[Rfam]
RNA sequence: UAUUCUCCAUGAAGGUCUGAUCUUAAAGUUACCCCCGAUAAUGGACCAGACCUGAGCCCACCGAAUA
Numbered sequence: 001u002a003u004u005c006u007c008c009a010u011g012a013a014g015g016u017c018u019g020a021u022c023u024u025a026a027a028g029u030u031a032c033c034c035c036c037g038a039u040a041a042u043g044g045a046c047c048a049g050a051c052c053u054g055a056g057c058c059c060a061c062c063g064a065a066u067a
Base pairs, nucleotide, nucleotide: 001067002066003065004064005063014052015051016050017049018048019047021045022044023043029041030040031039
Dot-bracket structure: (((((........((((((.(((.....(((.......))).))).))))))..........)))))
Selenocysteine insertion sequence 1: a 67-nucleotide RNA sequence from Xenopus tropicalis. The literature on the family includes a 1996 paper in RNA by Walczak et al., "A novel RNA structural motif in the selenocysteine insertion element of eukaryotic selenoprotein mRNAs". It is annotated as a cis-regulatory element.